[Rfam]
RNA sequence: GGGGGGCAGGAGGGGCUCAGGGAGGAAGCCUGUAUAGCCCCUGGCCCUCUCUGCCCUUCCGU
Numbered sequence: 001g002g003g004g005g006g007c008a009g010g011a012g013g014g015g016c017u018c019a020g021g022g023a024g025g026a027a028g029c030c031u032g033u034a035u036a037g038c039c040c041c042u043g044g045c046c047c048u049c050u051c052u053g054c055c056c057u058u059c060c061g062u
Stems, first nucleotide, its partner, number of pairs: 001059010012048005018043005
A member of the RNA family "mir-328 microRNA precursor family" from Tupaia belangeri, 62 nucleotides long. The literature on the family includes a 2004 paper in Proc Natl Acad Sci U S A by Kim et al., "Identification of many microRNAs that copurify with polyribosomes in mammalian neurons". NCBI's taxonomy places the organism under Eukaryota, Opisthokonta, Bilateria, Amniota, Tupaia belangeri.